[Rfam]
RNA sequence: UGGAAGUGAUGAAAUAGAGAUAAUUGGAUGUCUCUUUGAGUGGAGUGUGUGUGACAGUCAAGUGGGGUGGGAGGGUGGGGAGUGUGUGCAUGCCUGUGUGUAUAGAAAAGGCUUUGCAUGGGGGCACUGAUAAUAUAGUGCUGAUUCCGGAGUGCAUCUGAGGCGUGUUGUUGAAUUCUGGGGUCCUACUUGGCAACAUUGCCGAUGAUUAAAGCCCAAAACAAGCUCACCAAGACAAGCCUAGGCAUCUUAAAUCUCUAACAGGUUCAUUAAUGAAAGUGAUCCUGUGAUCUGAUCCAA
Numbered sequence: 001u002g003g004a005a006g007u008g009a010u011g012a013a014a015u016a017g018a019g020a021u022a023a024u025u026g027g028a029u030g031u032c033u034c035u036u037u038g039a040g041u042g043g044a045g046u047g048u049g050u051g052u053g054a055c056a057g058u059c060a061a062g063u064g065g066g067g068u069g070g071g072a073g074g075g076u077g078g079g080g081a082g083u084g085u086g087u088g089c090a091u092g093c094c095u096g097u098g099u100g101u102a103u104a105g106a107a108a109a110g111g112c113u114u115u116g117c118a119u120g121g122g123g124g125c126a127c128u129g130a131u132a133a134u135a136u137a138g139u140g141c142u143g144a145u146u147c148c149g150g151a152g153u154g155c156a157u158c159u160g161a162g163g164c165g166u167g168u169u170g171u172u173g174a175a176u177u178c179u180g181g182g183g184u185c186c187u188a189c190u191u192g193g194c195a196a197c198a199u200u201g202c203c204g205a206u207g208a209u210u211a212a213a214g215c216c217c218a219a220a221a222c223a224a225g226c227u228c229a230c231c232a233a234g235a236c237a238a239g240c241c242u243a244g245g246c247a248u249c250u251u252a253a254a255u256c257u258c259u260a261a262c263a264g265g266u267u268c269a270u271u272a273a274u275g276a277a278a279g280u281g282a283u284c285c286u287g288u289g290a291u292c293u294g295a296u297c298c299a300a
Stems, first nucleotide, its partner, number of pairs: 001299004166198008177183001
Notes: Shown here is a 300-nucleotide sequence from Penelope pileata, a member of the family "Small Cajal body-specific RNA 7". On this family, see Darzacq et al., EMBO J 2002: "Cajal body-specific small nuclear RNAs: a novel class of 2'-O-methylation and pseudouridylation guide RNAs". The family has 18 seed sequences and 570 matches in Rfam 15.1. Pairs were carried over by alignment from the consensus structure. Gene Ontology terms of the family: RNA processing and nucleolus.